[Rfam]
RNA sequence: UGAGCGCACUAUUGUAAGUGGCUUUGGAUAAAAGCGUCUGCUAAAUGACUGUCA
Numbered sequence: 001u002g003a004g005c006g007c008a009c010u011a012u013u014g015u016a017a018g019u020g021g022c023u024u025u026g027g028a029u030a031a032a033a034g035c036g037u038c039u040g041c042u043a044a045a046u047g048a049c050u051g052u053c054a
Base pairs, nucleotide, nucleotide: 013043014041015040016039021035022034023033024032025031

Rfam assigns this 54-nucleotide RNA from Muraenolepis orangiensis to the family "UnaL2 LINE 3' element".
Rfam classes the family as a cis-regulatory element.
The source organism's lineage runs through Eukaryota, Bilateria, Actinopteri, Teleostei and Muraenolepis.
A reference for the family is Baba et al. (2004), "Solution structure of an RNA stem-loop derived from the 3' conserved region of eel LINE UnaL2", RNA.